The family of this 80-nucleotide sequence from Capsicum baccatum is "Small nucleolar RNA R12". The family has 9 seed sequences and 992 matches in Rfam 15.1. snoR12 is a C/D box small nucleolar RNA, which acts as a methylation guide for 25S ribosomal RNA in plants. snoR12 has been alternatively named snoZ44 in Arabidopsis and snoZ131 in rice.
RNA sequence: GUAAGGAUGAUGAGAGAAAUCAUUCGGAUUCCCACUGAUGUUAAUACGUGAUUACUACAACCAGCUACUUCUGACUUCAC
Numbered sequence: 001g002u003a004a005g006g007a008u009g010a011u012g013a014g015a016g017a018a019a020u021c022a023u024u025c026g027g028a029u030u031c032c033c034a035c036u037g038a039u040g041u042u043a044a045u046a047c048g049u050g051a052u053u054a055c056u057a058c059a060a061c062c063a064g065c066u067a068c069u070u071c072u073g074a075c076u077u078c079a080c
Stems, first nucleotide, its partner, number of pairs: 001080002003077003